[Rfam]
RNA sequence: GCUGCGCCUAGCUUGUCGCGAGGCGAAAACCGGACACCCUAUCCGGCCGGCGCAGUUUUCUACACAAGGG
Numbered sequence: 001g002c003u004g005c006g007c008c009u010a011g012c013u014u015g016u017c018g019c020g021a022g023g024c025g026a027a028a029a030c031c032g033g034a035c036a037c038c039c040u041a042u043c044c045g046g047c048c049g050g051c052g053c054a055g056u057u058u059u060c061u062a063c064a065c066a067a068g069g070g
Base pairs, nucleotide, nucleotide: 001056002055003054004053005052006051007050008049011024012023013022014021030046031045032044033043037070038069039068040067
RNA: int-alpA RNA